[Rfam]
Nucleotides: 288
Stems, first nucleotide, its partner, number of pairs: 001013002016032006034062003085156003089153001130152003134148001185220002188217004197212003231255001233253001235252002237249001
Number, partner (000 for none) and nucleotide at each position: 001013c002012u003000a004000g005000u006000c007000u008000g009000a010000g011000g012002g013001g014000a015000c016032g017031c018030g019029a020028g021027g022000a023000u024000c025000g026000a027021c028020c029019u030018c031017g032016u033000c034062g035061c036060u037000g038000c039000c040000u041000c042000g043000g044000c045000c046000a047000g048000u049000g050000c051000g052000u053000c054000g055000g056000g057000c058000c059000g060036g061035g062034c063000c064000u065000u066000g067000a068000c069000a070000a071000g072000c073000a074000g075000c076000c077000c078000g079000a080000g081000g082000g083000g084000a085156g086155g087154a088000u089153c090000u091000u092000c093000g094000g095000g096000g097000c098000c099000g100000g101000a102000c103000c104000u105000g106000g107000a108000c109000c110000c111000u112000u113000g114000c115000g116000a117000u118000u119000g120000c121000c122000g123000c124000c125000u126000g127000c128000u129000c130152c131151u132150c133000c134148u135000g136000c137000u138000u139000g140000u141000g142000u143000u144000u145000u146000a147000c148134g149000a150132g151131g152130g153089g154087u155086u156085u157000c158000c159000c160000g161000c162000c163000u164000u165000g166000c167000a168000c169000c170000u171000c172000c173000c174000a175000c176000c177000u178000c179000u180000g181000g182000a183000c184000g185220u186219g187000c188217c189216u190215c191214c192000c193000c194000u195000u196000c197212u198211c199210u200000c201000c202000u203000c204000g205000c206000g207000u208000g209000u210199g211198g212197a213000g214191g215190g216189a217188g218000c219186c220185a221000a222000c223000g224000c225000u226000u227000a228000g229000g230000c231255c232000g233253g234000a235252g236251c237249g238000a239000g240000c241000c242000u243000g244000g245000g246000g247000g248000g249237c250000g251236g252235c253233c254000g255231g256000c257000c258000g259000u260000g261000a262000a263000g264000g265000c266000u267000u268000c269000g270000c271000g272000g273000a274000g275000a276000c277000c278000g279000a280000u281000u282000c283000g284000c285000c286000a287000u288000g
Shown here is a 288-nucleotide RNA from Callorhinus ursinus, a member of the family "HIF-1 alpha IRES". Pairs were carried over by alignment from the consensus structure, which was predicted with RNAfold. From the family's description: This family represents the hypoxia-inducible factor 1-alpha internal ribosome entry site. It is annotated as an internal ribosome entry site. Gene Ontology term of the family: ribosome binding.